[Rfam]
Nucleotides: 073
Base pairs, nucleotide, nucleotide: 013042014041015040019073020072021071022070023069024068025067026038027037028036047061048060049059050058051056
Number, partner (000 for none) and nucleotide at each position: 001000u002000u003000g004000c005000a006000a007000g008000u009000u010000c011000a012000a013042g014041g015040c016000c017000a018000u019073a020072g021071c022070a023069g024068a025067a026038g027037u028036g029000c030000u031000c032000a033000u034000g035000a036028u037027g038026c039000a040015g041014c042013c043000u044000g045000u046000c047061a048060g049059a050058u051056u052000u053000a054000a055000u056051g057000u058050a059049u060048c061047u062000a063000u064000g065000a066000a067025u068024u069023c070022u071021g072020c073019u
Overview:
The record is a 73-nucleotide RNA sequence from Crocodylus porosus, which matches "Mammalian CPEB3 ribozyme" in Rfam. The family's consensus secondary structure is taken from published work. A search with the family's covariance model found it, with a score of 39 bits. Taxonomically the source falls in Crocodylus (Eukaryota, Deuterostomia, Euteleostomi, Crocodylidae).